ctRNA: an 83-nucleotide sequence from Weissella cibaria. Lineage of the source: Bacteria > Bacillati > Bacillota > Bacilli > Weissella.
[Rfam]
RNA sequence: UAUAAAGGCGCUCCUUUGCGUGUUUGGUUUAAGCAUGAAGAAUGUCUGACCAAAGAUAAUUUCUUCAUGCUUUUAUUAUAGCA
Numbered sequence: 001u002a003u004a005a006a007g008g009c010g011c012u013c014c015u016u017u018g019c020g021u022g023u024u025u026g027g028u029u030u031a032a033g034c035a036u037g038a039a040g041a042a043u044g045u046c047u048g049a050c051c052a053a054a055g056a057u058a059a060u061u062u063c064u065u066c067a068u069g070c071u072u073u074u075a076u077u078a079u080a081g082c083a
Base pairs, nucleotide, nucleotide: 004025005024006023008021009020010019011018031072032071033070034069035068036067037066038065039064040063041062042061

Rolling circle replication plasmids contain a number of mechanisms to maintain a low copy number. One of these methods is to transcribe a small RNA called ctRNA (for counter-transcribed RNA) than is transcribed on the opposite strand to RepB the replication initiation protein. ctRNA binds to the mRNA of repB and causes translational inhibition. The base pairs follow the family's consensus structure, which was predicted with ILM. For this family Rfam cites "Involvement of antisense RNA in replication control of the lactococcal plasmid pND324" (Duan et al., FEMS Microbiol Lett, 1998). By type it is an antisense RNA.